[Rfam]
RNA sequence: GUCCGUUCAUCCCAAGUGGGACGCAUGACGCUCUACCAUGGAACGGGGGUAGAGU
Numbered sequence: 001g002u003c004c005g006u007u008c009a010u011c012c013c014a015a016g017u018g019g020g021a022c023g024c025a026u027g028a029c030g031c032u033c034u035a036c037c038a039u040g041g042a043a044c045g046g047g048g049g050u051a052g053a054g055u
Base pairs, nucleotide, nucleotide: 004045005044006043007042008041010021011020012019013018030055031054032053033052034051035050036048037047
Rfam assigns this 55-nucleotide RNA to the family "Glutamine-II riboswitch aptamer". Its family is annotated with glutamine binding in the Gene Ontology.